[Rfam]
RNA sequence: GGCGAUAAACGGCUAGCGUAAUAAACCUAUUGGACCCGGGGGCAGUGCCCGGCGUCUCCACCAGAACUCCCCGUCGUGGCGGGCUCAUGGGGACGAAACAGGAUCGACAAGGGCGUAAAGGUUAGACUUUUGCUCGGCAUGGUACCACCGAUAUCGGGCCAUCCUAAUAGUUGCCAACGACAACUAUGCUAAGGUUGCUAUCGCUGCUUAA
Numbered sequence: 001g002g003c004g005a006u007a008a009a010c011g012g013c014u015a016g017c018g019u020a021a022u023a024a025a026c027c028u029a030u031u032g033g034a035c036c037c038g039g040g041g042g043c044a045g046u047g048c049c050c051g052g053c054g055u056c057u058c059c060a061c062c063a064g065a066a067c068u069c070c071c072c073g074u075c076g077u078g079g080c081g082g083g084c085u086c087a088u089g090g091g092g093a094c095g096a097a098a099c100a101g102g103a104u105c106g107a108c109a110a111g112g113g114c115g116u117a118a119a120g121g122u123u124a125g126a127c128u129u130u131u132g133c134u135c136g137g138c139a140u141g142g143u144a145c146c147a148c149c150g151a152u153a154u155c156g157g158g159c160c161a162u163c164c165u166a167a168u169a170g171u172u173g174c175c176a177a178c179g180a181c182a183a184c185u186a187u188g189c190u191a192a193g194g195u196u197g198c199u200a201u202c203g204c205u206g207c208u209u210a211a
Stems, first nucleotide, its partner, number of pairs: 001134005014124004026113003030110003036052005053095007135150003

A member of the RNA family "permuted transfer-messenger RNA" from Devosia sp. Root413D1, 211 nucleotides long. By type it is a non-coding RNA gene. The family's consensus secondary structure is taken from published work. The organism belongs to Devosia, within Bacteria.